[Rfam]
RNA sequence: GCCACACUUUUGGACUUCCUUCUCGUUCCCAGCAAAAUGCACAGUUUGCUGGCAAGACUAGGCAGUCCAGAUGUGUGGC
Numbered sequence: 001g002c003c004a005c006a007c008u009u010u011u012g013g014a015c016u017u018c019c020u021u022c023u024c025g026u027u028c029c030c031a032g033c034a035a036a037a038u039g040c041a042c043a044g045u046u047u048g049c050u051g052g053c054a055a056g057a058c059u060a061g062g063c064a065g066u067c068c069a070g071a072u073g074u075g076u077g078g079c
Stems, first nucleotide, its partner, number of pairs: 002078006009071001012068005018062003023057002026054001029052008
A member of the RNA family "mir-74 microRNA precursor family" from Caenorhabditis briggsae, 79 nucleotides long. The source organism's lineage runs through Eukaryota, Protostomia, Chromadorea, Rhabditida and Caenorhabditis. The family has 7 seed sequences and 14 matches in Rfam 15.1. The literature on the family includes a 2001 paper in Science by Lau et al., "An abundant class of tiny RNAs with probable regulatory roles in Caenorhabditis elegans".